[Rfam]
RNA sequence: GCCCUGUACUUUUAAAAUUUUAUCUUUAAAUAUUUUGUUCAGUUUUCCCCCAGCUGCCUCAAUCCCAUCAGGCUUCAGUGGUGCUGAGAUGGGCCAGAGAGCAGCUGACAUGCAGGGAUAGCUUGAGUCUGUGUUCCUGGGUGAGCCAAGAAGGGGAGCCAAGGUGGUUGCAUGCAACGGCUUAGCCAUGAACAGCAUGGACUGAUGGUUGGAAGAGCCGGUAUCUGUGGCUGUGAUCUGACAUUUUCAAGCUGAGACC
Dot-bracket structure: .............................(.(((...((((((...((.((((((((......((((((..((.........).)..)))))).......))))))).......(..((.((.......((..(((((..............)))))..))........)))).)...................)...)).......))).)))....................))).)....................
Small Cajal body specific RNA 6: a 259-nucleotide RNA sequence from Marmota monax. Pairs were carried over by alignment from the consensus structure, which is taken from published work. The organism belongs to Marmota, within Eukaryota. The family's RNA type in Rfam is small Cajal body RNA. Rfam describes the family as follows. U88 is small Cajal body specific RNA (scaRNA). scaRNAs are a novel class of small nuclear RNAs which localise to the Cajal bodies. U88 is found associated with both fibrillarin and Gar1p and co-localises with coilin in Cajal bodies. Gene Ontology terms of the family: RNA processing and nucleolus.